[Rfam]
RNA sequence: ACACGGGAAAGGAGGUGGUCCAGCUUUGAGUAGCUACAGGACACGUGAGGUGGCUGCCCGCUAGGCGGCUGUCAUCGACUGCACUUCUGUCGAUACCUGAAGGUUCGACUGGAGCGUCGAGGCCGUGUGUCAGCGGCCCUGGCGAAUCCAAGGGAGCCACCCGAUUCCCGGGGGAACGUCCGGUUUGUCCAGCCGGCCCGCGCACCCGCGCGGUACCCCCGGGUUUCGUCAUUC
Numbered sequence: 001a002c003a004c005g006g007g008a009a010a011g012g013a014g015g016u017g018g019u020c021c022a023g024c025u026u027u028g029a030g031u032a033g034c035u036a037c038a039g040g041a042c043a044c045g046u047g048a049g050g051u052g053g054c055u056g057c058c059c060g061c062u063a064g065g066c067g068g069c070u071g072u073c074a075u076c077g078a079c080u081g082c083a084c085u086u087c088u089g090u091c092g093a094u095a096c097c098u099g100a101a102g103g104u105u106c107g108a109c110u111g112g113a114g115c116g117u118c119g120a121g122g123c124c125g126u127g128u129g130u131c132a133g134c135g136g137c138c139c140u141g142g143c144g145a146a147u148c149c150a151a152g153g154g155a156g157c158c159a160c161c162c163g164a165u166u167c168c169c170g171g172g173g174g175a176a177c178g179u180c181c182g183g184u185u186u187g188u189c190c191a192g193c194c195g196g197c198c199c200g201c202g203c204a205c206c207c208g209c210g211c212g213g214u215a216c217c218c219c220c221g222g223g224u225u226u227c228g229u230c231a232u233u234c
Stems, first nucleotide, its partner, number of pairs: 014058006059144007068134004073129003162228003167223008180196005

The family of this 234-nucleotide sequence from Catellatospora methionotrophica is "Actinobacteria sRNA Ms_IGR-5".
It is annotated as a small RNA.
The pairing is the family consensus, mapped onto this sequence.
On this family, see Li et al., RNA 2013: "Identification of small RNAs in Mycobacterium smegmatis using heterologous Hfq".